[Rfam]
RNA sequence: GCCGGAGGGAUAUUUGUUAAAAAGUGCGCCGUGUGGUGAAUCCCCCUGUGCGGUGGGGCGACUGGUGUACAUAGCAUUUAUUAUGUUAUGAGCGAAGCCUACGCGGGUUCAGUGACACCGACUGAAUUCACCGGGAGGCACCCGGCACCAUGCAACAGACGCAAGUUAGGCUAAGCCUUAUACCCCUGUAAGUUUUUUACAGGGGUUUUUUGUGC
Numbered sequence: 001g002c003c004g005g006a007g008g009g010a011u012a013u014u015u016g017u018u019a020a021a022a023a024g025u026g027c028g029c030c031g032u033g034u035g036g037u038g039a040a041u042c043c044c045c046c047u048g049u050g051c052g053g054u055g056g057g058g059c060g061a062c063u064g065g066u067g068u069a070c071a072u073a074g075c076a077u078u079u080a081u082u083a084u085g086u087u088a089u090g091a092g093c094g095a096a097g098c099c100u101a102c103g104c105g106g107g108u109u110c111a112g113u114g115a116c117a118c119c120g121a122c123u124g125a126a127u128u129c130a131c132c133g134g135g136a137g138g139c140a141c142c143c144g145g146c147a148c149c150a151u152g153c154a155a156c157a158g159a160c161g162c163a164a165g166u167u168a169g170g171c172u173a174a175g176c177c178u179u180a181u182a183c184c185c186c187u188g189u190a191a192g193u194u195u196u197u198u199a200c201a202g203g204g205g206u207u208u209u210u211u212g213u214g215c
Stems, first nucleotide, its partner, number of pairs: 015161002031153008043058004065089003092104003105129004110124003131145005170215002182206009

Shown here is a 215-nucleotide RNA sequence from Shigella genomosp. SF-2015, a member of the family "Gammaproteobacterial sRNA STnc100". It is annotated as a small RNA. The sequence is in the family's curated seed alignment.